[Rfam]
RNA: MIR1919 microRNA precursor family
Organism: Solanum commersonii
RNA sequence: AUCUUCCGUUAGUCCUGUCGCAGAUGACUUUCGCUCUUCUAUGGAACUAUCCUGCACCCCUUUCUCUAAAUCUAAUUAAUUCAAUGGUAGGACGAGAGUCAUCUGUGACAGGGUAAAGGAAGAU
Numbered sequence: 001a002u003c004u005u006c007c008g009u010u011a012g013u014c015c016u017g018u019c020g021c022a023g024a025u026g027a028c029u030u031u032c033g034c035u036c037u038u039c040u041a042u043g044g045a046a047c048u049a050u051c052c053u054g055c056a057c058c059c060c061u062u063u064c065u066c067u068a069a070a071u072c073u074a075a076u077u078a079a080u081u082c083a084a085u086g087g088u089a090g091g092a093c094g095a096g097a098g099u100c101a102u103c104u105g106u107g108a109c110a111g112g113g114u115a116a117a118g119g120a121a122g123a124u
Base pairs, nucleotide, nucleotide: 002123003122004121005120006119007118012114013113014112015111016110017109018108019107020106021105022104023103024102025101026100027099028098029097030096031095032094033093035091036090